[Rfam]
RNA sequence: CGUCCCACCAGCUACCACGCGGAGUGCAUACCCUUUCAGUCUUCGCGGUCGGUCGUUUUCUGGGCCAAGAUGC
Numbered sequence: 001c002g003u004c005c006c007a008c009c010a011g012c013u014a015c016c017a018c019g020c021g022g023a024g025u026g027c028a029u030a031c032c033c034u035u036u037c038a039g040u041c042u043u044c045g046c047g048g049u050c051g052g053u054c055g056u057u058u059u060c061u062g063g064g065c066c067a068a069g070a071u072g073c
Base pairs, nucleotide, nucleotide: 002066004064005063006062007061014053015052016051018047019046020045021044022043023042024041
Trypanosomatid snoRNA TB9Cs4H2: a 73-nucleotide sequence from Leishmania infantum. Pairs were carried over by alignment from the consensus structure, which was predicted with WAR. The source organism's lineage runs through Eukaryota, Euglenozoa, Metakinetoplastina, Leishmaniinae and Leishmania infantum. Its family is annotated with nucleolus and RNA processing in the Gene Ontology. Rfam's curators put it in the seed alignment.